[Rfam]
RNA sequence: AUUAAGAAUUAGUAACACCGCCGUAUAAUUUUGGGGAUAAGGCCCAUGAGUUUCUACCGGACCGCCGUAAACUGGUCUGACUACGCUGGUGAAUAGUUGACGC
Dot-bracket structure: .................(((.((((...((.((((.......)))).))........(((((((.......).))))))..)))).)))..............
A member of the RNA family "Purine riboswitch aptamer" from Halobacillus halophilus, 103 nucleotides long.